[Rfam]
RNA: Small nucleolar RNA U3
RNA sequence: AAGACCUUACUUCAUAGGAUCAUUUCUAUAGUAAGCUCUUCCUCAGUCUUCCACAAUAUGUGAGACGAGCUCAAACCACGAUGAGGAGACGUGGCGCGGCACCCUGAGCGUGAGAAUGGCAGAGGCAGCUUGUCUCUAGCCCUCGAUGAUCGUUCGCUCCCCUCACGGGGAGUGUGGGGUGUUGUCGCUGUCUGAGUGGU
Numbered sequence: 001a002a003g004a005c006c007u008u009a010c011u012u013c014a015u016a017g018g019a020u021c022a023u024u025u026c027u028a029u030a031g032u033a034a035g036c037u038c039u040u041c042c043u044c045a046g047u048c049u050u051c052c053a054c055a056a057u058a059u060g061u062g063a064g065a066c067g068a069g070c071u072c073a074a075a076c077c078a079c080g081a082u083g084a085g086g087a088g089a090c091g092u093g094g095c096g097c098g099g100c101a102c103c104c105u106g107a108g109c110g111u112g113a114g115a116a117u118g119g120c121a122g123a124g125g126c127a128g129c130u131u132g133u134c135u136c137u138a139g140c141c142c143u144c145g146a147u148g149a150u151c152g153u154u155c156g157c158u159c160c161c162c163u164c165a166c167g168g169g170g171a172g173u174g175u176g177g178g179g180u181g182u183u184g185u186c187g188c189u190g191u192c193u194g195a196g197u198g199g200u
Stems, first nucleotide, its partner, number of pairs: 001040004006035006015028005048064003075200005094188003097184009108153003118141003122136005156173007